Rfam assigns this 448-nucleotide sequence from Rivibacter subsaxonicus to the family "Bacterial RNase P class A". Pairs were carried over by alignment from the consensus structure, which is taken from published work.

[Rfam]
RNA sequence: GAAGCGAGCCAGACCGCCGCUGGUGCAAUCGCCGAAAGGCCGCACUGGAGGAAGGUCCGGACUGCAAAGAGCAGCGUAGCAGCUAACGGCUGUCCACCGCGAGGUGAGGAUCAGAGCAACAGAGACGAGUCGGUCGUCCGGCACUGGAAGCGCGGCGCAAGCCGGGCUUUCAAGGUUCCUUCGAAAGAGGGCAGACCCUUCGGGGUUGGGGGCGGGCAGGGCGCAAGCCCUGCGGGACCCGGGGCGCAGCCUCGGGGGCCGGGUGAAACGGGCAAUCUCUACGCGCAGCAACACCAAAUAGGCCAGCAUCGAGGCGGCUCGCGGAGCUGGCGGGUAGGUGGCAUCGAGCCGUUCCCGCGAGGGGCGGCCCAGAGGAAUGGCGGUCACGCUCGCGCCGGCGCAAGUCGGCGCGAACGCACAGAAUCCGGCCUAUCGGUUCGCUUCACAC
Numbered sequence: 001g002a003a004g005c006g007a008g009c010c011a012g013a014c015c016g017c018c019g020c021u022g023g024u025g026c027a028a029u030c031g032c033c034g035a036a037a038g039g040c041c042g043c044a045c046u047g048g049a050g051g052a053a054g055g056u057c058c059g060g061a062c063u064g065c066a067a068a069g070a071g072c073a074g075c076g077u078a079g080c081a082g083c084u085a086a087c088g089g090c091u092g093u094c095c096a097c098c099g100c101g102a103g104g105u106g107a108g109g110a111u112c113a114g115a116g117c118a119a120c121a122g123a124g125a126c127g128a129g130u131c132g133g134u135c136g137u138c139c140g141g142c143a144c145u146g147g148a149a150g151c152g153c154g155g156c157g158c159a160a161g162c163c164g165g166g167c168u169u170u171c172a173a174g175g176u177u178c179c180u181u182c183g184a185a186a187g188a189g190g191g192c193a194g195a196c197c198c199u200u201c202g203g204g205g206u207u208g209g210g211g212g213c214g215g216g217c218a219g220g221g222c223g224c225a226a227g228c229c230c231u232g233c234g235g236g237a238c239c240c241g242g243g244g245c246g247c248a249g250c251c252u253c254g255g256g257g258g259c260c261g262g263g264u265g266a267a268a269c270g271g272g273c274a275a276u277c278u279c280u281a282c283g284c285g286c287a288g289c290a291a292c293a294c295c296a297a298a299u300a301g302g303c304c305a306g307c308a309u310c311g312a313g314g315c316g317g318c319u320c321g322c323g324g325a326g327c328u329g330g331c332g333g334g335u336a337g338g339u340g341g342c343a344u345c346g347a348g349c350c351g352u353u354c355c356c357g358c359g360a361g362g363g364g365c366g367g368c369c370c371a372g373a374g375g376a377a378u379g380g381c382g383g384u385c386a387c388g389c390u391c392g393c394g395c396c397g398g399c400g401c402a403a404g405u406c407g408g409c410g411c412g413a414a415c416g417c418a419c420a421g422a423a424u425c426c427g428g429c430c431u432a433u434c435g436g437u438u439c440g441c442u443u444c445a446c447a448c
Stems, first nucleotide, its partner, number of pairs: 001444010011433001012385007020048007053431003057428005062288004069320004074284005079093005094108001095106004109279002114277002116273002131220001134215006292340004302331006314322002348368004353364004

It scores 164 bits against the family's covariance model.